[Rfam]
RNA sequence: CUCUGGUGUCCUUCAUUCCACCGGGUCCUGUGUCCGAUUCUGAUCCAGAUUCCCAGUGAGAUGAAGCACAUGGGAGG
Numbered sequence: 001c002u003c004u005g006g007u008g009u010c011c012u013u014c015a016u017u018c019c020a021c022c023g024g025g026u027c028c029u030g031u032g033u034c035c036g037a038u039u040c041u042g043a044u045c046c047a048g049a050u051u052c053c054c055a056g057u058g059a060g061a062u063g064a065a066g067c068a069c070a071u072g073g074g075a076g077g
Stems, first nucleotide, its partner, number of pairs: 011066006019058003023053003028048003
Shown here is a 77-nucleotide sequence from Callorhinchus milii, a member of the family "mir-205 microRNA precursor family".
Rfam links the family to the GO terms miRNA-mediated post-transcriptional gene silencing and RISC complex.
A reference for the family is Chen et al. (2005), "The developmental miRNA profiles of zebrafish as determined by small RNA cloning", Genes Dev.
The base pairs follow the family's consensus structure, which was predicted with RNAalifold.
The source organism's lineage runs through Eukaryota, Opisthokonta, Bilateria, Vertebrata and Callorhinchus.